[Rfam]
RNA sequence: UGCGAUGAUGAUGUAAUUUGCGUCUUACCCCAGUGUUCAGUGACAGUUGCCUGCUGUCAGCAUGCUGACACUGCUGGGCUGAAGACCUCUUGAAUCUGAGCA
Numbered sequence: 001u002g003c004g005a006u007g008a009u010g011a012u013g014u015a016a017u018u019u020g021c022g023u024c025u026u027a028c029c030c031c032a033g034u035g036u037u038c039a040g041u042g043a044c045a046g047u048u049g050c051c052u053g054c055u056g057u058c059a060g061c062a063u064g065c066u067g068a069c070a071c072u073g074c075u076g077g078g079c080u081g082a083a084g085a086c087c088u089c090u091u092g093a094a095u096c097u098g099a100g101c102a
Stems, first nucleotide, its partner, number of pairs: 001102003021084001023082002031073005040065002042058005
Dot-bracket structure: (((.................(.((......(((((....(((((((.......))))).....))...))))).......)).)...............)))